This 76-nucleotide sequence from Nestor notabilis belongs to the Rfam family "Small nucleolar RNA SNORD19". Rfam classes the family as a C/D-box small nucleolar RNA. The source organism's lineage runs through Eukaryota, Gnathostomata, Archelosauria, Coelurosauria and Nestor. Its Rfam clan is "SNORD19 clan".
RNA sequence: GAGAAAUGAGGAUACAGACUUCGUCUUACUUCUGUAGUGAAGACUUCAGAUCCAACUCUGAUCUCGCACUGAAGAC
Numbered sequence: 001g002a003g004a005a006a007u008g009a010g011g012a013u014a015c016a017g018a019c020u021u022c023g024u025c026u027u028a029c030u031u032c033u034g035u036a037g038u039g040a041a042g043a044c045u046u047c048a049g050a051u052c053c054a055a056c057u058c059u060g061a062u063c064u065c066g067c068a069c070u071g072a073a074g075a076c
Base pairs, nucleotide, nucleotide: 001065002064003063004062